[Rfam]
RNA sequence: UCUCGACUAGUGCCGCCUUGUCUUUUGAAAGUUUUCUCCUUUCUUUUUUAAAGUAUAUUACUGUUUACUUGGUGGCAGAAAUCU
Numbered sequence: 001u002c003u004c005g006a007c008u009a010g011u012g013c014c015g016c017c018u019u020g021u022c023u024u025u026u027g028a029a030a031g032u033u034u035u036c037u038c039c040u041u042u043c044u045u046u047u048u049u050a051a052a053g054u055a056u057a058u059u060a061c062u063g064u065u066u067a068c069u070u071g072g073u074g075g076c077a078g079a080a081a082u083c084u
Base pairs, nucleotide, nucleotide: 011077012076013075014074015073016072017071020068021067030062031061032060035057037055039053040052041051